[Rfam]
RNA sequence: CUUUAUGGUUAGUUUUGCAGGUUUGCAUCCAGCUUUUCUCUGGCUUGCUGUGCAAAUCCAUGCAAAACUGAUUAUGGCA
Numbered sequence: 001c002u003u004u005a006u007g008g009u010u011a012g013u014u015u016u017g018c019a020g021g022u023u024u025g026c027a028u029c030c031a032g033c034u035u036u037u038c039u040c041u042g043g044c045u046u047g048c049u050g051u052g053c054a055a056a057u058c059c060a061u062g063c064a065a066a067a068c069u070g071a072u073u074a075u076g077g078c079a
Base pairs, nucleotide, nucleotide: 003077004076005075006074007073008072009071010070011069012068013067014066015065016064017063018062019061020059021058022056023055024054025053026052027051028050031049032048033047

Overview: Rfam assigns this 79-nucleotide sequence from Xenopus laevis to the family "mir-19 microRNA precursor family". It scores 83 bits against the family's covariance model. For this family Rfam cites "Identification of novel genes coding for small expressed RNAs" (Lagos-Quintana et al., Science, 2001).